RNA sequence: GUUGAGAACACUGGAGGCAGCGGUUCAUCGAUCUGUUCCCUGAAAAGCGAUAAACAAAAUAUAUCAUCAGGAAUCGGUCGAUAAACCUCUGCAUCCAGCGCCUUAACC
Numbered sequence: 001g002u003u004g005a006g007a008a009c010a011c012u013g014g015a016g017g018c019a020g021c022g023g024u025u026c027a028u029c030g031a032u033c034u035g036u037u038c039c040c041u042g043a044a045a046a047g048c049g050a051u052a053a054a055c056a057a058a059a060u061a062u063a064u065c066a067u068c069a070g071g072a073a074u075c076g077g078u079c080g081a082u083a084a085a086c087c088u089c090u091g092c093a094u095c096c097a098g099c100g101c102c103u104u105a106a107c108c
Base pairs, nucleotide, nucleotide: 013096014095015094018091019090020089022087023086024085025084027082028081029080030079031078032077033076036073037072038071
Dot-bracket structure: ............(((..(((.((((.(((((((..(((................................)))..))))))).)))).)))..)))............
The family of this 108-nucleotide RNA from Anisodus acutangulus is "MIR162_1 microRNA precursor family". Taxonomically the source falls in Anisodus (Eukaryota, Streptophytina, Embryophyta, Spermatophyta). On this family, see Reinhart et al., Genes Dev 2002: "MicroRNAs in plants". It scores 98 bits against the family's covariance model. Rfam links the family to the GO terms miRNA-mediated post-transcriptional gene silencing and RISC complex.